[Rfam]
RNA sequence: GUCCUCUACAUCGCCGCGUUUCUUUGCUCACACACAGACUGCCUUUGGCAAGAUCCUAACUAUGCAAAUGAGAAAUUCGGAGUAAUCUUCACCUCACAUCCAUCUCCGUCUCCGGACAGAGCUCUGGUCACCGCCCGCAAGGGUCCGACGUGAUCUCACGUUCGCACGACUGGCAUCAGAAAGCUCAGGGUCUGCUUUGAACGCAGCAGUGUCCCUAUGGGAGCCGGUGCGAAGAUUGUAUGCGGUCCGCUCGCUGUUCGAAAGUACAGGAGCGGCUGUGAUACUUUAGUGCAAUACGCGGCGUGCUGCAGCGUUGAUUCAUUUCUGAGUCACGCGAAGGUACAAUUCGAUUCCGAUUACUCUGCUGAGGAC
Numbered sequence: 001g002u003c004c005u006c007u008a009c010a011u012c013g014c015c016g017c018g019u020u021u022c023u024u025u026g027c028u029c030a031c032a033c034a035c036a037g038a039c040u041g042c043c044u045u046u047g048g049c050a051a052g053a054u055c056c057u058a059a060c061u062a063u064g065c066a067a068a069u070g071a072g073a074a075a076u077u078c079g080g081a082g083u084a085a086u087c088u089u090c091a092c093c094u095c096a097c098a099u100c101c102a103u104c105u106c107c108g109u110c111u112c113c114g115g116a117c118a119g120a121g122c123u124c125u126g127g128u129c130a131c132c133g134c135c136c137g138c139a140a141g142g143g144u145c146c147g148a149c150g151u152g153a154u155c156u157c158a159c160g161u162u163c164g165c166a167c168g169a170c171u172g173g174c175a176u177c178a179g180a181a182a183g184c185u186c187a188g189g190g191u192c193u194g195c196u197u198u199g200a201a202c203g204c205a206g207c208a209g210u211g212u213c214c215c216u217a218u219g220g221g222a223g224c225c226g227g228u229g230c231g232a233a234g235a236u237u238g239u240a241u242g243c244g245g246u247c248c249g250c251u252c253g254c255u256g257u258u259c260g261a262a263a264g265u266a267c268a269g270g271a272g273c274g275g276c277u278g279u280g281a282u283a284c285u286u287u288a289g290u291g292c293a294a295u296a297c298g299c300g301g302c303g304u305g306c307u308g309c310a311g312c313g314u315u316g317a318u319u320c321a322u323u324u325c326u327g328a329g330u331c332a333c334g335c336g337a338a339g340g341u342a343c344a345a346u347u348c349g350a351u352u353c354c355g356a357u358u359a360c361u362c363u364g365c366u367g368a369g370g371a372c
Base pairs, nucleotide, nucleotide: 001372002371003370004369009364010363011301012300013299014298023068024067025066026065037055038054040050041049042048078355079354080353081352082351087234088233089232090231133144134143135142136141147162148161149160150159151158169228170227171226172225173224174223188216189215190214303343304342305341306340307338309336
The family of this 372-nucleotide RNA from Pseudovirgaria hyperparasitica is "Nuclear RNase P".
A reference for the family is Frank and Pace (1998), "Ribonuclease P: unity and diversity in a tRNA processing ribozyme", Annu Rev Biochem.
The source organism's lineage runs through Eukaryota, saccharomyceta, Pezizomycotina, dothideomyceta and Pseudovirgaria.
It scores 31 bits against the family's covariance model.
Gene Ontology terms of the family: ribonuclease P complex, ribonuclease P activity and tRNA processing.
By type it is a ribozyme.